[Rfam]
RNA sequence: AAGCAGGAAAGUUAUAAUAUAGCUGUGCAGUGCUGUAUUAUCGUUCCCCCUGCUUAAAGUAAAGUGCUUCCUUUCUAUCCCUACCUGCUUCGUCCCCACGGCAGGUAGGGACGCUGGGUUUCAUACAG
Numbered sequence: 001a002a003g004c005a006g007g008a009a010a011g012u013u014a015u016a017a018u019a020u021a022g023c024u025g026u027g028c029a030g031u032g033c034u035g036u037a038u039u040a041u042c043g044u045u046c047c048c049c050c051u052g053c054u055u056a057a058a059g060u061a062a063a064g065u066g067c068u069u070c071c072u073u074u075c076u077a078u079c080c081c082u083a084c085c086u087g088c089u090u091c092g093u094c095c096c097c098a099c100g101g102c103a104g105g106u107a108g109g110g111a112c113g114c115u116g117g118g119u120u121u122c123a124u125a126c127a128g
Stems, first nucleotide, its partner, number of pairs: 003053005014041010080109004085104004
Notes: Shown here is a 128-nucleotide RNA from Acanthisitta chloris, a member of the family "Small nucleolar RNA SNORA63". The source organism's lineage runs through Eukaryota, Gnathostomata, Dipnotetrapodomorpha, Tetrapoda and Acanthisitta. The family has 8 seed sequences and 1,279 matches in Rfam 15.1. E3 belongs to the H/ACA class of snoRNAs and is involved in the processing of eukaryotic pre-rRNA and has regions of complementarity to 18S rRNA. E3 is encoded in introns in the gene for protein synthesis initiation factor 4AII. For this family Rfam cites "Three small nucleolar RNAs that are involved in ribosomal RNA precursor processing" (Mishra and Eliceiri, Proc Natl Acad Sci U S A, 1997).